[Rfam]
RNA sequence: GCGACUGUCUGAUAUGUUUGCUAUGUUAGGUUGUUACUCAAACUCAACGAUAUAUCAAACAUAUUUGUAUAGUUUC
Numbered sequence: 001g002c003g004a005c006u007g008u009c010u011g012a013u014a015u016g017u018u019u020g021c022u023a024u025g026u027u028a029g030g031u032u033g034u035u036a037c038u039c040a041a042a043c044u045c046a047a048c049g050a051u052a053u054a055u056c057a058a059a060c061a062u063a064u065u066u067g068u069a070u071a072g073u074u075u076c
Stems, first nucleotide, its partner, number of pairs: 005072004011065010022054004030048004
Rfam assigns this 76-nucleotide RNA from Callorhinchus milii to the family "mir-190 microRNA precursor family". The organism belongs to Callorhinchus, within Eukaryota. Rfam links the family to the GO terms miRNA-mediated post-transcriptional gene silencing and RISC complex. The family is grouped with related families in Rfam's "mir-50 clan". The family's consensus secondary structure was predicted with RNAalifold. A reference for the family is Kloosterman et al. (2006), "Cloning and expression of new microRNAs from zebrafish", Nucleic Acids Res.